[Rfam]
RNA: MIR396 microRNA precursor family
Organism: Punica granatum
RNA sequence: AGUCAUGUUCUUCCACAGCUUUCUUGAACUUCUUUAAUUCUUCCUCCUUUUGUUUCAAUCUUGCAUGGAUUACUAAAAGAAGAAAGGCCUUUCUCAUAGAAGCUCAAGAAAGCUGUGGGAAAACAUGGUGA
Numbered sequence: 001a002g003u004c005a006u007g008u009u010c011u012u013c014c015a016c017a018g019c020u021u022u023c024u025u026g027a028a029c030u031u032c033u034u035u036a037a038u039u040c041u042u043c044c045u046c047c048u049u050u051u052g053u054u055u056c057a058a059u060c061u062u063g064c065a066u067g068g069a070u071u072a073c074u075a076a077a078a079g080a081a082g083a084a085a086g087g088c089c090u091u092u093c094u095c096a097u098a099g100a101a102g103c104u105c106a107a108g109a110a111a112g113c114u115g116u117g118g119g120a121a122a123a124c125a126u127g128g129u130g131a
Stems, first nucleotide, its partner, number of pairs: 003128005013118003017114006024107004029102005